Y RNA: a 102-nucleotide RNA from Prolemur simus. About the family: Y RNAs are components of the Ro ribonucleoprotein particle (Ro RNP), in association with Ro60 and La proteins. The Y RNAs and Ro60 and La proteins are well conserved, but the function of the Ro RNP is not known. In humans the RNA component can be one of four small RNAs -- hY1, hY3, hY4 and hY5. The organism belongs to Prolemur, within Eukaryota. The family has 104 seed sequences and 26,986 matches in Rfam 15.1. The base pairs follow the family's consensus structure, which is taken from published work. The family's RNA type in Rfam is non-coding RNA gene. For this family Rfam cites "Evolution of the vertebrate Y RNA cluster" (Mosig et al., Theory Biosci, 2007). A search with the family's covariance model found it, with a score of 59 bits.
[Rfam]
RNA sequence: GGCUGGUCCAAAUGCAGUAGUGUUUACAACUGAUUGAUCACAACCAGUUACAGUUUCGUUUGUUUAUUCUCUGCUACCACUGCUUCACCUGACUAGGCUUUU
Number, nucleotide and partner (000 for none) at each position: 001g098002g000003c096004u095005g094006g093007u092008c091009c000010a090011a000012a000013u000014g086015c000016a081017g080018u079019a000020g077021u076022g000023u000024u000025u000026a000027c000028a064029a063030c062031u000032g060033a059034u000035u000036g000037a000038u000039c000040a000041c000042a000043a000044c000045c000046a000047g000048u000049u000050a000051c000052a000053g000054u000055u000056u000057c000058g000059u033060u032061u000062g030063u029064u028065u000066a000067u000068u000069c000070u000071c000072u000073g000074c000075u000076a021077c020078c000079a018080c017081u016082g000083c000084u000085u000086c014087a000088c000089c000090u010091g008092a007093c006094u005095a004096g003097g000098c001099u000100u000101u000102u000